[Rfam]
RNA sequence: ACAUGGGUUUGGAUUUGUGGCAGGCCCAUCCCCUUGGGUCUUUCGUAGUGCCCCAUGACGGAGCAAACUGUGGCCUUGGACCAUUGCCUGGCCUCAGCCUCUAGGCUGCAGGAACUGAAGCCAGUUACACAGUG
Numbered sequence: 001a002c003a004u005g006g007g008u009u010u011g012g013a014u015u016u017g018u019g020g021c022a023g024g025c026c027c028a029u030c031c032c033c034u035u036g037g038g039u040c041u042u043u044c045g046u047a048g049u050g051c052c053c054c055a056u057g058a059c060g061g062a063g064c065a066a067a068c069u070g071u072g073g074c075c076u077u078g079g080a081c082c083a084u085u086g087c088c089u090g091g092c093c094u095c096a097g098c099c100u101c102u103a104g105g106c107u108g109c110a111g112g113a114a115c116u117g118a119a120g121c122c123a124g125u126u127a128c129a130c131a132g133u134g
Stems, first nucleotide, its partner, number of pairs: 002057003005053004015048006022041003025037002071127004082117002087112002089108006
The record is a 134-nucleotide sequence from Cnephaeus nilssonii, which matches "Small nucleolar RNA SNORA42/SNORA80 family" in Rfam. About the family: The members of this family belong to the H/ACA class of snoRNAs that guide the sites of modification of uridines to pseudouridines. Human ACA42 (SNORA42) was cloned from HeLa cells by immunoprecipitation with anti-GAR1 antibody. By type it is an H/ACA-box small nucleolar RNA. Rfam 15.1 lists 1,535 matches to the family in 183 species. The organism belongs to Cnephaeus, within Eukaryota.